[Rfam]
RNA sequence: AUCCCAGUGCAAGGGCUUUACGCAUGACAGUGAAGAUUCGUCUGAGUCUGCGUUUUUGCUAGUUGAAAACUACAACUAUGACCACUUCUGUUGGCCUUCGGGUCGGCAGGGAAUUUUUGACACUUUGGCUUCGGA
Numbered sequence: 001a002u003c004c005c006a007g008u009g010c011a012a013g014g015g016c017u018u019u020a021c022g023c024a025u026g027a028c029a030g031u032g033a034a035g036a037u038u039c040g041u042c043u044g045a046g047u048c049u050g051c052g053u054u055u056u057u058g059c060u061a062g063u064u065g066a067a068a069a070c071u072a073c074a075a076c077u078a079u080g081a082c083c084a085c086u087u088c089u090g091u092u093g094g095c096c097u098u099c100g101g102g103u104c105g106g107c108a109g110g111g112a113a114u115u116u117u118u119g120a121c122a123c124u125u126u127g128g129c130u131u132c133g134g135a
Stems, first nucleotide, its partner, number of pairs: 020053005026048003034043003086111011124135004
The family of this 135-nucleotide sequence from Zopfia rhizophila is "U4 spliceosomal RNA". By type it is a spliceosomal small nuclear RNA. Rfam links the family to the GO terms U4 snRNP and spliceosomal tri-snRNP complex assembly. NCBI's taxonomy places the organism under Eukaryota, Fungi, saccharomyceta, Pezizomycotina, Zopfia rhizophila.